[Rfam]
The family of this 66-nucleotide RNA sequence from Apostasia shenzhenica is "Small nucleolar RNA U49".
Clan: SNORD49 clan.
Its family is annotated with nucleolus and RNA processing in the Gene Ontology.
By type it is a C/D-box small nucleolar RNA.
Rfam 15.1 lists 340 matches to the family in 152 species.
The family's consensus secondary structure was predicted with CMfinder.
RNA sequence: UCCCAAUGAGGAAAAAAGACCUGAGAUAGGAAGUGCCGUAUGACACUUGAUGCAGCUACUUCACCU
Numbered sequence: 001u002c003c004c005a006a007u008g009a010g011g012a013a014a015a016a017a018g019a020c021c022u023g024a025g026a027u028a029g030g031a032a033g034u035g036c037c038g039u040a041u042g043a044c045a046c047u048u049g050a051u052g053c054a055g056c057u058a059c060u061u062c063a064c065c066u
Stems, first nucleotide, its partner, number of pairs: 014060001031048005